Shown here is a 123-nucleotide RNA sequence, a member of the family "DUF3800-I RNA".
Actinobacteria, Firmicutes, Fusobacteria, Proteobacteria (1 example), Tenericutes (2 examples).
It is one of the family's seed sequences.
[Rfam]
Nucleotides: 123
Base pairs, nucleotide, nucleotide: 007028008027009026010025011024013021014020031084032083033082034081035080036079041076042075043074044053045052046051057073058072059071060070061069062068088113089112090111091110092109093108094107095106096105097104
Number, partner (000 for none) and nucleotide at each position: 001000u002000u003000g004000u005000g006000g007028u008027g009026c010025a011024g012000a013021c014020g015000u016000u017000c018000a019000a020014c021013g022000g023000g024011c025010u026009g027008c028007g029000a030000a031084c032083u033082u034081a035080a036079g037000a038000u039000g040000u041076u042075u043074g044053a045052g046051u047000g048000u049000g050000a051046g052045c053044u054000u055000a056000a057073g058072c059071g060070a061069c062068u063000u064000g065000u066000a067000a068062a069061g070060u071059c072058g073057c074043c075042a076041a077000c078000u079036c080035u081034u082033a083032a084031g085000g086000g087000g088113g089112a090111a091110g092109g093108g094107g095106u096105u097104a098000c099000a100000a101000a102000g103000g104097u105096a106095g107094c108093c109092c110091c111090u112089u113088u114000c115000u116000u117000u118000u119000u120000u121000c122000u123000g